[Rfam]
RNA: U4atac minor spliceosomal RNA
Organism: Dissostichus mawsoni
RNA sequence: ACUUUCCUUGUCCUGGGGUGGUACGGAGGCUCAAUGAACGUAUAGUGAGAGCCUCCCUGCUUACACCAUAUCAACACUCUCGCAUCAUCCGGGCUUCACGCUCGGGUUUGGUGCAAUUUUUGGAACA
Numbered sequence: 001a002c003u004u005u006c007c008u009u010g011u012c013c014u015g016g017g018g019u020g021g022u023a024c025g026g027a028g029g030c031u032c033a034a035u036g037a038a039c040g041u042a043u044a045g046u047g048a049g050a051g052c053c054u055c056c057c058u059g060c061u062u063a064c065a066c067c068a069u070a071u072c073a074a075c076a077c078u079c080u081c082g083c084a085u086c087a088u089c090c091g092g093g094c095u096u097c098a099c100g101c102u103c104g105g106g107u108u109u110g111g112u113g114c115a116a117u118u119u120u121u122g123g124a125a126c127a
Stems, first nucleotide, its partner, number of pairs: 006018004021060003026055007038046002082114006089105006
Dot-bracket structure: .....((((.....))))..(((..(((((((.....((.....))..)))))))..))).....................((((((.((((((.....))))))...)))))).............